[Rfam]
RNA: MIR5269 microRNA precursor family
Organism: Medicago truncatula
RNA sequence: UUGGUUGAAACUUAUGUGAGUCUCACACUUUGGAAAUGGAUCCCACAUAAAGUGACGAGACCCACAUAAGUUUCACCCAA
Numbered sequence: 001u002u003g004g005u006u007g008a009a010a011c012u013u014a015u016g017u018g019a020g021u022c023u024c025a026c027a028c029u030u031u032g033g034a035a036a037u038g039g040a041u042c043c044c045a046c047a048u049a050a051a052g053u054g055a056c057g058a059g060a061c062c063c064a065c066a067u068a069a070g071u072u073u074c075a076c077c078c079a080a
Stems, first nucleotide, its partner, number of pairs: 001080004006075013023058002026054007